The record is a 53-nucleotide sequence from Oceanicola granulosus, which matches "ffh sRNA" in Rfam.
NCBI's taxonomy places the organism under Bacteria, Alphaproteobacteria, Rhodobacterales, Roseobacteraceae, Oceanicola granulosus.
RNA sequence: GCCCGUCGGGAUCGCCCCCCGUCAGCGAGCGUUCGCCCACGGGGGCGUUUGCC
Numbered sequence: 001g002c003c004c005g006u007c008g009g010g011a012u013c014g015c016c017c018c019c020c021g022u023c024a025g026c027g028a029g030c031g032u033u034c035g036c037c038c039a040c041g042g043g044g045g046c047g048u049u050u051g052c053c
Stems, first nucleotide, its partner, number of pairs: 016045007025036004